[Rfam]
RNA sequence: GCCGGGUCUAGUAGCGUGGGCCUGUAAUCCAAGUGGAGGCAUGUGGGAAAUGGGACAUUAGGUUGGUUUCGUGGGCUGGAUUCAGUGUUAGCUGUUUACUGGCCUGCCCGUUCCAAGCUGAGAGUUGGGCCUUGUGGUUUGGACGAAACUCUGGCCCACUGGGCUCCUAGAGUGGAGGGUAAUGCGUGAGGCUGGCUUCACAGAGCAGCGAACACCUCCCGCUCUCGGCAGUGGAAGGAUAACGGGCCGGUGCUUCCUGGGCCCAUCAUGGUUCACUGGGCUGACCAUAAUCGGACCAUCUCUUUC
Numbered sequence: 001g002c003c004g005g006g007u008c009u010a011g012u013a014g015c016g017u018g019g020g021c022c023u024g025u026a027a028u029c030c031a032a033g034u035g036g037a038g039g040c041a042u043g044u045g046g047g048a049a050a051u052g053g054g055a056c057a058u059u060a061g062g063u064u065g066g067u068u069u070c071g072u073g074g075g076c077u078g079g080a081u082u083c084a085g086u087g088u089u090a091g092c093u094g095u096u097u098a099c100u101g102g103c104c105u106g107c108c109c110g111u112u113c114c115a116a117g118c119u120g121a122g123a124g125u126u127g128g129g130c131c132u133u134g135u136g137g138u139u140u141g142g143a144c145g146a147a148a149c150u151c152u153g154g155c156c157c158a159c160u161g162g163g164c165u166c167c168u169a170g171a172g173u174g175g176a177g178g179g180u181a182a183u184g185c186g187u188g189a190g191g192c193u194g195g196c197u198u199c200a201c202a203g204a205g206c207a208g209c210g211a212a213c214a215c216c217u218c219c220c221g222c223u224c225u226c227g228g229c230a231g232u233g234g235a236a237g238g239a240u241a242a243c244g245g246g247c248c249g250g251u252g253c254u255u256c257c258u259g260g261g262c263c264c265a266u267c268a269u270g271g272u273u274c275a276c277u278g279g280g281c282u283g284a285c286c287a288u289a290a291u292c293g294g295a296c297c298a299u300c301u302c303u304u305u306c
Base pairs, nucleotide, nucleotide: 001040002039003038004023005022006021007020008019009018010017028037029036030035043306045304046303047302048301050299051298052297053296056293058290059289060288061286062285063284064283065282066281068279069278071276072275073274074273075272076271077270078264079263081261082260083259084258085257087256090254091253093252094251099250100249101248102247103246104245105244106243108238109237111236112235113234114233115232117229118228119227120226121225122224123223124222125221127166128165129164130163131162132161134159135158136157137156139154140153141152142151143150167172174219175218176217177216178215183212185210186209187208192203193202194201